A member of the RNA family "Selenocysteine insertion sequence 1" from Camelus dromedarius, 64 nucleotides long. A search with the family's covariance model found it, with a score of 45 bits.
Nucleotides: 064
Stems, first nucleotide, its partner, number of pairs: 001064001004061002015049009030037002
Number, partner (000 for none) and nucleotide at each position: 001064c002000c003000g004061g005060c006000a007000c008000c009000c010000g011000u012000g013000a014000c015049g016048g017047u018046c019045u020044g021043c022042c023041c024000g025000a026000a027000a028000a029000c030037c031036a032000g033000c034000c035000c036031u037030g038000g039000u040000g041023g042022g043021g044020c045019a046018g047017a048016c049015c050000u051000g052000a053000g054000a055000a056000c057000c058000c059000g060005g061004c062000g063000u064001g
Overview
Rfam's curators write: The incorporation of selenocysteine into a protein sequence is directed by an in-frame UGA codon (usually a stop codon) within the coding region of the mRNA. Selenoprotein mRNAs contain a conserved secondary structure in the 3' UTR that is required for the distinction of UGA stop from UGA selenocysteine. A reference for the family is Walczak et al. (1996), "A novel RNA structural motif in the selenocysteine insertion element of eukaryotic selenoprotein mRNAs", RNA.